[Rfam]
RNA sequence: AUCGUUUUCUUAUAUACACUGAGUAGAUAAAAAAAAAAAAUCUGUUCUUAUCAGUUUAAUAUCUGAUACGUCCCCUAUCUGGGGACCAUAUAUUAAAUGGAUUUUUGGAACAGGGAGAUGGAAGAAGAGCUUGCUCUGUCCACUCCACGCAUCGACCUGGUAUUGCAGUACCUCCAGGACCGGUGCACUUCUC
Numbered sequence: 001a002u003c004g005u006u007u008u009c010u011u012a013u014a015u016a017c018a019c020u021g022a023g024u025a026g027a028u029a030a031a032a033a034a035a036a037a038a039a040a041u042c043u044g045u046u047c048u049u050a051u052c053a054g055u056u057u058a059a060u061a062u063c064u065g066a067u068a069c070g071u072c073c074c075c076u077a078u079c080u081g082g083g084g085a086c087c088a089u090a091u092a093u094u095a096a097a098u099g100g101a102u103u104u105u106u107g108g109a110a111c112a113g114g115g116a117g118a119u120g121g122a123a124g125a126a127g128a129g130c131u132u133g134c135u136c137u138g139u140c141c142a143c144u145c146c147a148c149g150c151a152u153c154g155a156c157c158u159g160g161u162a163u164u165g166c167a168g169u170a171c172c173u174c175c176a177g178g179a180c181c182g183g184u185g186c187a188c189u190u191c192u193c
Stems, first nucleotide, its partner, number of pairs: 008027003049068006070086006114146004120140002126137004149186006156178005

U2 spliceosomal RNA: a 193-nucleotide RNA from Xenopus laevis. Gene Ontology terms of the family: U2 snRNP, pre-mRNA branch point binding and mRNA branch site recognition. It scores 129 bits against the family's covariance model. A reference for the family is Zwieb (1997), "The uRNA database", Nucleic Acids Res.